RNA sequence: UCUUCCGAGGAGCGUUGCGACAGGUGAUCGACCUGCCAGGCUCGGACAGUCACAACUGCGCUCACGUCAA
Numbered sequence: 001u002c003u004u005c006c007g008a009g010g011a012g013c014g015u016u017g018c019g020a021c022a023g024g025u026g027a028u029c030g031a032c033c034u035g036c037c038a039g040g041c042u043c044g045g046a047c048a049g050u051c052a053c054a055a056c057u058g059c060g061c062u063c064a065c066g067u068c069a070a
Stems, first nucleotide, its partner, number of pairs: 004046005021035005

A member of the RNA family "SAH (S-adenosyl-L-homocysteine) riboswitch aptamer" from Pseudoduganella lurida, 70 nucleotides long.
A search with the family's covariance model found it, with a score of 60 bits.
NCBI's taxonomy places the organism under Bacteria, Pseudomonadati, Pseudomonadota, Betaproteobacteria, Pseudoduganella.